[Rfam]
RNA: SAM riboswitch aptamer (S box leader)
Organism: Virgibacillus sp. SK37
RNA sequence: CUCUUAUCAAGAGAGGCUGAGGGACAGGCCCUGUGAAGCCCGGCAACCCGUUCUAUGUUUAUAGAAAAAGGUGCUAAAUCCUGCAAAACAGUUUCGUUUUGAAAGAUGAGAG
Numbered sequence: 001c002u003c004u005u006a007u008c009a010a011g012a013g014a015g016g017c018u019g020a021g022g023g024a025c026a027g028g029c030c031c032u033g034u035g036a037a038g039c040c041c042g043g044c045a046a047c048c049c050g051u052u053c054u055a056u057g058u059u060u061a062u063a064g065a066a067a068a069a070g071g072u073g074c075u076a077a078a079u080c081c082u083g084c085a086a087a088a089c090a091g092u093u094u095c096g097u098u099u100u101g102a103a104a105g106a107u108g109a110g111a112g
Base pairs, nucleotide, nucleotide: 001112002111003110004109005108006107007106008105013041015040016039017038021031022030023029025083026082027081028080042075043074044073045072047071048070051066052065053064079104084101085100086099087098088097089096